[Rfam]
RNA sequence: AGGGUGAGGCGGGUGCUAGACCCUGGAUUGAAAACAGUUAUUUUAAGUCUGUUACAAUUUAAAGGUCUAGUAGUUGCAAUCUCACCCA
Numbered sequence: 001a002g003g004g005u006g007a008g009g010c011g012g013g014u015g016c017u018a019g020a021c022c023c024u025g026g027a028u029u030g031a032a033a034a035c036a037g038u039u040a041u042u043u044u045a046a047g048u049c050u051g052u053u054a055c056a057a058u059u060u061a062a063a064g065g066u067c068u069a070g071u072a073g074u075u076g077c078a079a080u081c082u083c084a085c086c087c088a
Stems, first nucleotide, its partner, number of pairs: 002087003006081002009077002014072009024061007034052003
Dot-bracket structure: .(((.((.((...(((((((((.(((((((...(((.............)))..)))))))..)))))))))...))..))...))).
RNA: mir-BART9 microRNA precursor family
Organism: Lymphocryptovirus macacinegamma10